A member of the RNA family "Group II catalytic intron D1-D4-6", 214 nucleotides long.
Its family is annotated with Group II intron splicing in the Gene Ontology.
RNA sequence: AGAAUCCCGCCCGGAAAGGGUUGGCCACCCACCGAAAGCGAGUCUUGCGUGGCGUCGGGUAACCGCCGCUGCGAAGCGGAGACAGCGAGCGUGCAGGCCCUGUGAUUGAGCCCCGAAAUGACCGCACUGGGGGCCGAGGUUUUCGAGACGACGGAAGGCACUACCGAUGCGCCGCACUGGCCUGGCGCGGAGGUCCCGCCGGGGUCGAAGAGCA
Numbered sequence: 001a002g003a004a005u006c007c008c009g010c011c012c013g014g015a016a017a018g019g020g021u022u023g024g025c026c027a028c029c030c031a032c033c034g035a036a037a038g039c040g041a042g043u044c045u046u047g048c049g050u051g052g053c054g055u056c057g058g059g060u061a062a063c064c065g066c067c068g069c070u071g072c073g074a075a076g077c078g079g080a081g082a083c084a085g086c087g088a089g090c091g092u093g094c095a096g097g098c099c100c101u102g103u104g105a106u107u108g109a110g111c112c113c114c115g116a117a118a119u120g121a122c123c124g125c126a127c128u129g130g131g132g133g134c135c136g137a138g139g140u141u142u143u144c145g146a147g148a149c150g151a152c153g154g155a156a157g158g159c160a161c162u163a164c165c166g167a168u169g170c171g172c173c174g175c176a177c178u179g180g181c182c183u184g185g186c187g188c189g190g191a192g193g194u195c196c197c198g199c200c201g202g203g204g205u206c207g208a209a210g211a212g213c214a
Stems, first nucleotide, its partner, number of pairs: 012034003018030004023182003038086002042083004046078002048073007056065003107208001108206001110205006130197003133159003163194003168189006
Rfam's curators put it in the seed alignment. Rfam's curators write: Group II introns are found in rRNA, tRNA and mRNA of organelles in fungi, plants and protists, and also in mRNA in bacteria.